Purine riboswitch aptamer: a 97-nucleotide RNA sequence from Streptococcus hyointestinalis.
[Rfam]
RNA sequence: UUAGUGACCCUAUAAAAACCUUAUUUAUGUUGAGAAUGGGCUCAACGUUUCUACAAGGCACCGUAAAUGCCUAACAAUGAGGUAGCUUAGUCUACUG
Numbered sequence: 001u002u003a004g005u006g007a008c009c010c011u012a013u014a015a016a017a018a019c020c021u022u023a024u025u026u027a028u029g030u031u032g033a034g035a036a037u038g039g040g041c042u043c044a045a046c047g048u049u050u051c052u053a054c055a056a057g058g059c060a061c062c063g064u065a066a067a068u069g070c071c072u073a074a075c076a077a078u079g080a081g082g083u084a085g086c087u088u089a090g091u092c093u094a095c096u097g
Stems, first nucleotide, its partner, number of pairs: 018083008029046006056072005
The match comes from Rfam's covariance-model search (62 bits).
Pairs were carried over by alignment from the consensus structure, which is taken from published work.